[Rfam]
RNA sequence: UCCGGAAUGGUGUAGUGGUUAGCAUUUCUGCCUUUCAACAGACUGUCUGUCUAACAAACAAACAGUGAAAGUCCGCAGGAGACCGGGGUUCAAUUCCCCGUUCCGGAA
Numbered sequence: 001u002c003c004g005g006a007a008u009g010g011u012g013u014a015g016u017g018g019u020u021a022g023c024a025u026u027u028c029u030g031c032c033u034u035u036c037a038a039c040a041g042a043c044u045g046u047c048u049g050u051c052u053a054a055c056a057a058a059c060a061a062a063c064a065g066u067g068a069a070a071g072u073c074c075g076c077a078g079g080a081g082a083c084c085g086g087g088g089u090u091c092a093a094u095u096c097c098c099c100g101u102u103c104c105g106g107a108a
Base pairs, nucleotide, nucleotide: 001107002106003105004104005103006102007101010025011024012023013022027079028078029077030076031075084100085099086098087097088096